[Rfam]
RNA: permuted transfer-messenger RNA
RNA sequence: GGCGAUAAACAUCAUGUGAAAUAGACGGAGCGGACCCGGGGGCGGUACCCGGCGCCUCCACCAAAAAUAUGGGGGCGAAAUAGGAUCGACGUACGUGAUAAAGAUAUGAUUUUUGCCCGGCAUUGUUCCGCCGUUAUCGGGCUAUUUUUAUAAGUGCCAAUUUAAACAGCACUCGCUUAGGUGCAAACCGUAAUCGUCGGAAAGCUGCAAAUGCUAACCGCGGUCAACGUUUUGCAAUCGCUGCCUAA
Dot-bracket structure: (((((........((((........((..(((...(((((.......)))))(((((((...........)))))))............))).))........)))).....)))))((((........))))...................................................................................................................